[Rfam]
TPP riboswitch aptamer (THI element): a 95-nucleotide RNA from Syntrophobacter fumaroxidans. The family's consensus secondary structure is taken from published work. Vitamin B(1) in its active form thiamin pyrophosphate (TPP) is an essential coenzyme that is synthesised by coupling of pyrimidine and thiazole moieties in bacteria. The previously detected thiamin-regulatory element, thi box was extended, resulting in a new, highly conserved RNA secondary structure, the THI element, which is widely distributed in eubacteria and also occurs in some archaea. It scores 76 bits against the family's covariance model.
RNA sequence: AACAGCCGUUAGGGGUGCUCGGAUAUAGAGCUGAGAUGAAACCCUGAUUACCUGAUCUGGAUAAUACCAGCGUAGGGAAAUGGUUGUGAGGGCUC
Numbered sequence: 001a002a003c004a005g006c007c008g009u010u011a012g013g014g015g016u017g018c019u020c021g022g023a024u025a026u027a028g029a030g031c032u033g034a035g036a037u038g039a040a041a042c043c044c045u046g047a048u049u050a051c052c053u054g055a056u057c058u059g060g061a062u063a064a065u066a067c068c069a070g071c072g073u074a075g076g077g078a079a080a081u082g083g084u085u086g087u088g089a090g091g092g093c094u095c
Stems, first nucleotide, its partner, number of pairs: 006083005011045004016039001017031004051076004057070004